[Rfam]
RNA sequence: GUGAGUUUUGUGGAGUUUAAAGUUUACAAUCGCCGACAAUCAAAUUACGCGAAAGCUCUACCCAAACUCAUCCCUC
Numbered sequence: 001g002u003g004a005g006u007u008u009u010g011u012g013g014a015g016u017u018u019a020a021a022g023u024u025u026a027c028a029a030u031c032g033c034c035g036a037c038a039a040u041c042a043a044a045u046u047a048c049g050c051g052a053a054a055g056c057u058c059u060a061c062c063c064a065a066a067c068u069c070a071u072c073c074c075u076c
Stems, first nucleotide, its partner, number of pairs: 001071008010061009
RNA: mir-1017 microRNA precursor family